[Rfam]
Nucleotides: 119
Stems, first nucleotide, its partner, number of pairs: 004117004009111001012108001018102002023098003027091001029089003
Number, partner (000 for none) and nucleotide at each position: 001000u002000a003000a004117u005116c006115u007114g008000a009111c010000u011000g012108g013000g014000a015000c016000a017000g018102a019101u020000u021000u022000u023098u024097a025096u026000c027091u028000a029089a030088u031087u032000a033000u034000a035000g036000c037000a038000g039000a040000a041000c042000c043000a044000c045000a046000u047000c048000u049000g050000a051000c052000u053000g054000c055000u056000c057000a058000g059000a060000u061000u062000c063000a064000c065000c066000u067000g068000u069000c070000a071000a072000a073000a074000c075000u076000a077000c078000u079000g080000u081000g082000u083000g084000a085000g086000c087031a088030a089029u090000a091027a092000u093000u094000u095000u096025a097024u098023a099000a100000g101019g102018u103000u104000u105000u106000a107000a108012u109000u110000g111009g112000a113000g114007u115006a116005g117004a118000u119000u

Shown here is a 119-nucleotide sequence from Salix viminalis, a member of the family "MIR480 microRNA precursor family". The match comes from Rfam's covariance-model search (58 bits). The family's consensus secondary structure was predicted with WAR. A reference for the family is Lu et al. (2005), "Novel and mechanical stress-responsive MicroRNAs in Populus trichocarpa that are absent from Arabidopsis", Plant Cell. Rfam 15.1 lists 3,070 matches to the family in 171 species.